[Rfam]
Ribosomal protein L10 leader: a 125-nucleotide sequence from Macrococcus sp. DPC7161. It is annotated as a cis-regulatory leader. On this family, see Yakhnin et al., Nucleic Acids Res 2015: "Ribosomal protein L10(L12)4 autoregulates expression of the Bacillus subtilis rplJL operon by a transcription attenuation mechanism". Pairs were carried over by alignment from the consensus structure, which was predicted with CMfinder. Gene Ontology term of the family: regulation of gene expression. This family is a putative r-protein leader autoregulatory structure found in B. subtilis and other low-GC Gram-positive bacteria. It is located in the 5' untranslated regions of mRNAs encoding ribosomal proteins L10 and L12 (rplJ-rplL). A Rho-independent transcription terminator structure that is probably involved in regulation is included at the 3' end. A search with the family's covariance model found it, with a score of 86 bits.
RNA sequence: UUUGUAUUUUAUAAAUAACCUAAGACAGUAGGGGCUUCGGCUUAAUAUCCUACCGAGGUGAAAUUUGACUUGAAACUGUUCAAGCACUUUUUACCAUGGGUGAAAAGUGCUUUUUUAUUACAUAU
Numbered sequence: 001u002u003u004g005u006a007u008u009u010u011a012u013a014a015a016u017a018a019c020c021u022a023a024g025a026c027a028g029u030a031g032g033g034g035c036u037u038c039g040g041c042u043u044a045a046u047a048u049c050c051u052a053c054c055g056a057g058g059u060g061a062a063a064u065u066u067g068a069c070u071u072g073a074a075a076c077u078g079u080u081c082a083a084g085c086a087c088u089u090u091u092u093a094c095c096a097u098g099g100g101u102g103a104a105a106a107g108u109g110c111u112u113u114u115u116u117a118u119u120a121c122a123u124a125u
Stems, first nucleotide, its partner, number of pairs: 028053006034041002084110010